The record is a 243-nucleotide sequence from Xenorhabdus cabanillasii, which matches "Group II catalytic intron D1-D4-6" in Rfam. Group II introns are found in rRNA, tRNA and mRNA of organelles in fungi, plants and protists, and also in mRNA in bacteria.
RNA sequence: AAAGUCCAGUCGUAGAAGGUAAACCAGACCACUACGUAGCGAGUCUUGCAUUUCCGGCGGUAACAAAGGAUAUGAAGCGUAGACAGCGAAACAUUCGAGCCGAAACCAAUAGGUGAACGUGAUAGCGCCGAAAUUCAUUAAGUCGUGUGUGCCGAUAGUUUUGUCCAGCUAGCAGGCAACAGCUUCUGAAUGGUCAUACUGGUGAAUUUCCCAGCCAGAAGCACACACCGGAGCCGCAGGCGU
Numbered sequence: 001a002a003a004g005u006c007c008a009g010u011c012g013u014a015g016a017a018g019g020u021a022a023a024c025c026a027g028a029c030c031a032c033u034a035c036g037u038a039g040c041g042a043g044u045c046u047u048g049c050a051u052u053u054c055c056g057g058c059g060g061u062a063a064c065a066a067a068g069g070a071u072a073u074g075a076a077g078c079g080u081a082g083a084c085a086g087c088g089a090a091a092c093a094u095u096c097g098a099g100c101c102g103a104a105a106c107c108a109a110u111a112g113g114u115g116a117a118c119g120u121g122a123u124a125g126c127g128c129c130g131a132a133a134u135u136c137a138u139u140a141a142g143u144c145g146u147g148u149g150u151g152c153c154g155a156u157a158g159u160u161u162u163g164u165c166c167a168g169c170u171a172g173c174a175g176g177c178a179a180c181a182g183c184u185u186c187u188g189a190a191u192g193g194u195c196a197u198a199c200u201g202g203u204g205a206a207u208u209u210c211c212c213a214g215c216c217a218g219a220a221g222c223a224c225a226c227a228c229c230g231g232a233g234c235c236g237c238a239g240g241c242g243u
Stems, first nucleotide, its partner, number of pairs: 011036005018030003037089001039087002043084004047079002049074003053070003059064001125234002128231003145228006151177003156171004182222007191213002
It scores 113 bits against the family's covariance model. NCBI's taxonomy places the organism under Bacteria, Pseudomonadati, Pseudomonadota, Enterobacterales, Xenorhabdus.